[Rfam]
RNA: sodF sRNA
RNA sequence: ACGCCCUGCCUCGUGAUCGUCUUCUCAACCUUCACCGGCAGGCGGAUGAAGGGGAGGCCCCCGCCUGGACGUGACAGGCGGGGGCCUCUC
Numbered sequence: 001a002c003g004c005c006c007u008g009c010c011u012c013g014u015g016a017u018c019g020u021c022u023u024c025u026c027a028a029c030c031u032u033c034a035c036c037g038g039c040a041g042g043c044g045g046a047u048g049a050a051g052g053g054g055a056g057g058c059c060c061c062c063g064c065c066u067g068g069a070c071g072u073g074a075c076a077g078g079c080g081g082g083g084g085c086c087u088c089u090c
Stems, first nucleotide, its partner, number of pairs: 002044002005042006013035004019029002052090016